[Rfam]
A member of the RNA family "Small Cajal body specific RNA 3" from Rhynochetos jubatus, 133 nucleotides long. The match comes from Rfam's covariance-model search (100 bits). Rfam links the family to the GO terms Cajal body, RNA processing and nucleolus.
RNA sequence: ACUGGAAGGUGCUGGGACUCGUUGUGGGCAAAAGAAAUGUUUUGUCCACCACUGCAGUCUUCCUAGAGUAAAGUGGAGGUCUCUGUCUGCUUUAGGAGAGCCAACCAAACCAGAUCGUUCCCCUCCAUACACA
Numbered sequence: 001a002c003u004g005g006a007a008g009g010u011g012c013u014g015g016g017a018c019u020c021g022u023u024g025u026g027g028g029c030a031a032a033a034g035a036a037a038u039g040u041u042u043u044g045u046c047c048a049c050c051a052c053u054g055c056a057g058u059c060u061u062c063c064u065a066g067a068g069u070a071a072a073g074u075g076g077a078g079g080u081c082u083c084u085g086u087c088u089g090c091u092u093u094a095g096g097a098g099a100g101c102c103a104a105c106c107a108a109a110c111c112a113g114a115u116c117g118u119u120c121c122c123c124u125c126c127a128u129a130c131a132c133a
Stems, first nucleotide, its partner, number of pairs: 004063003008058001010056003024049006034043003075126005083117001085115003089111001091109003095105001
The family's RNA type in Rfam is small Cajal body RNA.
Pairs were carried over by alignment from the consensus structure, which was predicted with RNAalifold.
Its Rfam clan is "SCARNA3 clan".
scaRNAs are a specific class of small nuclear RNAs which localise to the Cajal bodies and guide the modification of RNA polymerase II transcribed spliceosomal RNAs U1, U2, U4, U5 and U12.
The literature on the family includes a 2002 paper in EMBO J by Darzacq et al., "Cajal body-specific small nuclear RNAs: a novel class of 2'-O-methylation and pseudouridylation guide RNAs".